[Rfam]
This 134-nucleotide RNA belongs to the Rfam family "Small nucleolar RNA SNORA71". The members of this family belong to the H/ACA class of snoRNAs which bind a number of proteins (including dyskerin, Gar1p and Nop10p) to form snoRNP complexes. The base pairs follow the family's consensus structure, which was predicted with PFOLD.
RNA sequence: ACCUGUAUUCGAAAGUGAUCGUGGGCUGCCUGUGCCCUGGUCAUUGAUAGUGCAGGGAAAGAAAUCGCGGAAAGUGCUUCCCCGUGUUUGGAGGGUCCGCUCCUGUCCCUUUCAAACUCUGGAGCUUUCUCACA
Numbered sequence: 001a002c003c004u005g006u007a008u009u010c011g012a013a014a015g016u017g018a019u020c021g022u023g024g025g026c027u028g029c030c031u032g033u034g035c036c037c038u039g040g041u042c043a044u045u046g047a048u049a050g051u052g053c054a055g056g057g058a059a060a061g062a063a064a065u066c067g068c069g070g071a072a073a074g075u076g077c078u079u080c081c082c083c084g085u086g087u088u089u090g091g092a093g094g095g096u097c098c099g100c101u102c103c104u105g106u107c108c109c110u111u112u113c114a115a116a117c118u119c120u121g122g123a124g125c126u127u128u129c130u131c132a133c134a
Stems, first nucleotide, its partner, number of pairs: 002056008014045008023037004067131001069130007086117005091111005